Record summary: Shown here is a 91-nucleotide sequence, a member of the family "NLPC-P60 RNA". Rfam classes the family as a cis-regulatory element.
[Rfam]
RNA sequence: CGGUUCUUGAAUCACCUGACGGCAGGUGAGCGUAUAGAGGCAUUGCGCUCACUUAUGGGGUAGUCCGACGAUUCGCCCCGCUACCGGAGGU
Numbered sequence: 001c002g003g004u005u006c007u008u009g010a011a012u013c014a015c016c017u018g019a020c021g022g023c024a025g026g027u028g029a030g031c032g033u034a035u036a037g038a039g040g041c042a043u044u045g046c047g048c049u050c051a052c053u054u055a056u057g058g059g060g061u062a063g064u065c066c067g068a069c070g071a072u073u074c075g076c077c078c079c080g081c082u083a084c085c086g087g088a089g090g091u
Stems, first nucleotide, its partner, number of pairs: 025053004031047004057079005062073004